The record is a 109-nucleotide RNA from Zhouia amylolytica, which matches "6S-Flavo RNA" in Rfam. Rfam classes the family as a small RNA. The organism belongs to Zhouia amylolytica, within Bacteria.

RNA sequence: ACUCAACACUAUACAAUUAAAAAAGGUGAGUUUCUGUUGUAAAAGCAUGCCGUCCUAGUAACGGAUCCUUGAUCAGCGGGGUAGCCUUAAACCUGUUUUUCAGGAGUUU
Numbered sequence: 001a002c003u004c005a006a007c008a009c010u011a012u013a014c015a016a017u018u019a020a021a022a023a024a025g026g027u028g029a030g031u032u033u034c035u036g037u038u039g040u041a042a043a044a045g046c047a048u049g050c051c052g053u054c055c056u057a058g059u060a061a062c063g064g065a066u067c068c069u070u071g072a073u074c075a076g077c078g079g080g081g082u083a084g085c086c087u088u089a090a091a092c093c094u095g096u097u098u099u100u101c102a103g104g105a106g107u108u109u
Base pairs, nucleotide, nucleotide: 023088024087025086026085027084034079035078036077037076038075043070044069045068050064051063052062053061